Rfam assigns this 127-nucleotide RNA sequence from Moschus moschiferus to the family "Small nucleolar RNA SNORA25". The family's RNA type in Rfam is H/ACA-box small nucleolar RNA. The family's consensus secondary structure was predicted with RNAfold.
[Rfam]
RNA sequence: AGGUAAUUUCAAAGAGGGCUGAUGGGACCAAAUCCAGUUGCUCUUAAGGCUAUGACCAAAGAAUGAGUUCACCAUUGGAUUUAAUAGUCACUUCAUAGUGCUAUGUAUUCCUGAUGGAGAUUUGCAG
Numbered sequence: 001a002g003g004u005a006a007u008u009u010c011a012a013a014g015a016g017g018g019c020u021g022a023u024g025g026g027a028c029c030a031a032a033u034c035c036a037g038u039u040g041c042u043c044u045u046a047a048g049g050c051u052a053u054g055a056c057c058a059a060a061g062a063a064u065g066a067g068u069u070c071a072c073c074a075u076u077g078g079a080u081u082u083a084a085u086a087g088u089c090a091c092u093u094c095a096u097a098g099u100g101c102u103a104u105g106u107a108u109u110c111c112u113g114a115u116g117g118a119g120a121u122u123u124g125c126a127g
Stems, first nucleotide, its partner, number of pairs: 002057003006053002014045006021038001023037001026035001069120002072117002077111003084104004089100004
Dot-bracket structure: .(((.((......((((((.(.(..(........).)).))))))......)).)))...........((.((...(((....((((.((((....))))))))....)))....)).)).......
Its family is annotated with nucleolus and RNA processing in the Gene Ontology.